[Rfam]
Record summary
The family of this 144-nucleotide sequence is "RT-14 RNA".
RNA sequence: CUCUAGUACAUAAAAGGGUAUAUAUUUUAAGGAAUAUAUAAAUUAAGUAUUAGUAUUAAAGGAACUUUGUCCAUCCAGUAUGGUAAAUAUAUUUAAAAAUGCACUUACUAGUAAAAUUAUAUAAUUUGAAAGUGAGUGCAUUUU
Dot-bracket structure: ..(((((((.........(((((((((....)))))))))......))))))).....................(((...)))............(((((((((((((.....(((((....)))))....)))))))))))))
Numbered sequence: 001c002u003c004u005a006g007u008a009c010a011u012a013a014a015a016g017g018g019u020a021u022a023u024a025u026u027u028u029a030a031g032g033a034a035u036a037u038a039u040a041a042a043u044u045a046a047g048u049a050u051u052a053g054u055a056u057u058a059a060a061g062g063a064a065c066u067u068u069g070u071c072c073a074u075c076c077a078g079u080a081u082g083g084u085a086a087a088u089a090u091a092u093u094u095a096a097a098a099a100u101g102c103a104c105u106u107a108c109u110a111g112u113a114a115a116a117u118u119a120u121a122u123a124a125u126u127u128g129a130a131a132g133u134g135a136g137u138g139c140a141u142u143u144u
Stems, first nucleotide, its partner, number of pairs: 003053007019040009075083003096144013114127005
By type it is a small RNA.